[Rfam]
RNA sequence: GGGGUCAGAGGUUUCGGUUUCGGAUUCCGUUGAUCCCCACCCUCCGCCGCCGUAAACUGUUUGCCGCUGCUUAGACCGAUAGCUCGGCCUAAACAGAAGCACGCAUGGAAGAUAGAUAUAUGCAGUGGAGGGUUUUGGCUAAUGCAAUGGCAAAUUGGCAAGUCACGAGAAGGGCAAUGAACUCAUAUCUAUGAGUCUU
Numbered sequence: 001g002g003g004g005u006c007a008g009a010g011g012u013u014u015c016g017g018u019u020u021c022g023g024a025u026u027c028c029g030u031u032g033a034u035c036c037c038c039a040c041c042c043u044c045c046g047c048c049g050c051c052g053u054a055a056a057c058u059g060u061u062u063g064c065c066g067c068u069g070c071u072u073a074g075a076c077c078g079a080u081a082g083c084u085c086g087g088c089c090u091a092a093a094c095a096g097a098a099g100c101a102c103g104c105a106u107g108g109a110a111g112a113u114a115g116a117u118a119u120a121u122g123c124a125g126u127g128g129a130g131g132g133u134u135u136u137g138g139c140u141a142a143u144g145c146a147a148u149g150g151c152a153a154a155u156u157g158g159c160a161a162g163u164c165a166c167g168a169g170a171a172g173g174g175c176a177a178u179g180a181a182c183u184c185a186u187a188u189c190u191a192u193g194a195g196u197c198u199u
Base pairs, nucleotide, nucleotide: 003048004047005046059155060154061153062152063151064150079143080142181196182195183194184193
Shown here is a 199-nucleotide RNA sequence from Hibiscus syriacus, a member of the family "Early nodulin 40". Its family is annotated with nodulation in the Gene Ontology. NCBI's taxonomy places the organism under Eukaryota, Tracheophyta, eudicotyledons, Malvales, Hibiscus. On this family, see Gultyaev and Roussis, Nucleic Acids Res 2007: "Identification of conserved secondary structures and expansion segments in enod40 RNAs reveals new enod40 homologues in plants". A search with the family's covariance model found it, with a score of 50 bits.